[Rfam]
The record is a 267-nucleotide sequence from Streptococcus pyogenes, which matches "Streptococcus sRNA 8" in Rfam. By type it is a small RNA.
RNA sequence: UCUUAGAAUGGAGACAAACCCAGUUUGAUGCUCAAAAAGCAUGAACUGCUCUGCUGAUUUGACAACUGAUUUCUUAUUUCUGCGUGUGACGUGAGCCAAAACAGCUGCUUUUUGCUGUGGCAAAAGUGGUGUCAAUACUGGCAGUGACGUUACGCGGAAUUUUUGAGACCCUAGGCUCAAAAAUAAAGCAUAGAAUUCCAAAGGAAGUCGCUGCCAUAAGCAUCACCUAAGAAAAGUAUCAAAAAAGACUUUUUCUGCAAUCUUAAA
Numbered sequence: 001u002c003u004u005a006g007a008a009u010g011g012a013g014a015c016a017a018a019c020c021c022a023g024u025u026u027g028a029u030g031c032u033c034a035a036a037a038a039g040c041a042u043g044a045a046c047u048g049c050u051c052u053g054c055u056g057a058u059u060u061g062a063c064a065a066c067u068g069a070u071u072u073c074u075u076a077u078u079u080c081u082g083c084g085u086g087u088g089a090c091g092u093g094a095g096c097c098a099a100a101a102c103a104g105c106u107g108c109u110u111u112u113u114g115c116u117g118u119g120g121c122a123a124a125a126g127u128g129g130u131g132u133c134a135a136u137a138c139u140g141g142c143a144g145u146g147a148c149g150u151u152a153c154g155c156g157g158a159a160u161u162u163u164u165g166a167g168a169c170c171c172u173a174g175g176c177u178c179a180a181a182a183a184u185a186a187a188g189c190a191u192a193g194a195a196u197u198c199c200a201a202a203g204g205a206a207g208u209c210g211c212u213g214c215c216a217u218a219a220g221c222a223u224c225a226c227c228u229a230a231g232a233a234a235a236g237u238a239u240c241a242a243a244a245a246a247g248a249c250u251u252u253u254u255c256u257g258c259a260a261u262c263u264u265a266a267a
Base pairs, nucleotide, nucleotide: 001267003265005263006262007261010074011073012072015061016060017059021056022055023054024053029048082111084109086108087107088105091102092101112260113259114258115257119256120255122253123252124251125250126249127248129223131221132220134217159184160183161182162181163180164179165178166177167176169175170174188214189213190212193209194208196206197205198204199203231240232239